[Rfam]
RNA sequence: CAUAGUAGCAGCGUUAGUCGGGUUAGACCCCCGACGGCCGAAAGAGCAAGGGUUCCUCGGCAAUGCCGUUCAGCCGAGGGUUAGCCGGCCCUAAGUCCCGCCGUAAUUCGACCGGGACGAAUCGGGAAACUGGUUAAUAUUCCAGUGCUCGUAUGCAGUGAACGCCGACGCCUUCGAGACAGUCGAGCUGGGCUUUCGCCCAGUCGAAUCCGGGAACUCCGUGGACGCCGUAAUGGCAGGAAGCGGACGAAACCAGAGAUAGCGUAAGUCGACCGUAUCAAGGGCCCGUGAAAAGGCAAGCAUACGAACCGUACCGAGAUCCGACACAGGUGCUCUAGCUGAGAAAGCUAAGGUCUGU
Numbered sequence: 001c002a003u004a005g006u007a008g009c010a011g012c013g014u015u016a017g018u019c020g021g022g023u024u025a026g027a028c029c030c031c032c033g034a035c036g037g038c039c040g041a042a043a044g045a046g047c048a049a050g051g052g053u054u055c056c057u058c059g060g061c062a063a064u065g066c067c068g069u070u071c072a073g074c075c076g077a078g079g080g081u082u083a084g085c086c087g088g089c090c091c092u093a094a095g096u097c098c099c100g101c102c103g104u105a106a107u108u109c110g111a112c113c114g115g116g117a118c119g120a121a122u123c124g125g126g127a128a129a130c131u132g133g134u135u136a137a138u139a140u141u142c143c144a145g146u147g148c149u150c151g152u153a154u155g156c157a158g159u160g161a162a163c164g165c166c167g168a169c170g171c172c173u174u175c176g177a178g179a180c181a182g183u184c185g186a187g188c189u190g191g192g193c194u195u196u197c198g199c200c201c202a203g204u205c206g207a208a209u210c211c212g213g214g215a216a217c218u219c220c221g222u223g224g225a226c227g228c229c230g231u232a233a234u235g236g237c238a239g240g241a242a243g244c245g246g247a248c249g250a251a252a253c254c255a256g257a258g259a260u261a262g263c264g265u266a267a268g269u270c271g272a273c274c275g276u277a278u279c280a281a282g283g284g285c286c287c288g289u290g291a292a293a294a295g296g297c298a299a300g301c302a303u304a305c306g307a308a309c310c311g312u313a314c315c316g317a318g319a320u321c322c323g324a325c326a327c328a329g330g331u332g333c334u335c336u337a338g339c340u341g342a343g344a345a346a347g348c349u350a351a352g353g354u355c356u357g358u
Stems, first nucleotide, its partner, number of pairs: 017035006036355004044335004050315002055079006064072002086311003090125002095118006102110002129146005149307008164297003170285005176279002182273004187204005209257002212254001218247005226239001227237003263268001321330002336350004

Rfam assigns this 358-nucleotide part of an RNA from Halorubellus sp. JP-L1 to the family "Archaeal large subunit ribosomal RNA". The match comes from Rfam's covariance-model search (2805 bits).